Iron response element I: a 35-nucleotide sequence from Chrysochloris asiatica.
[Rfam]
Nucleotides: 035
Base pairs, nucleotide, nucleotide: 001035002034003033004032006031007030008029010028012027013026014025015024016023017021
Number, partner (000 for none) and nucleotide at each position: 001035c002034u003033g004032u005000g006031u007030u008029u009000u010028g011000c012027u013026u014025u015024a016023a017021c018000a019000g020000u021017g022000u023016u024015u025014g026013a027012a028010u029008a030007g031006a032004a033003c034002a035001g
Source information
Gene Ontology term of the family: response to iron ion. Rfam 15.1 lists 6,829 matches to the family in 599 species. The source organism's lineage runs through Eukaryota, Theria, Afrotheria, Chrysochlorinae and Chrysochloris.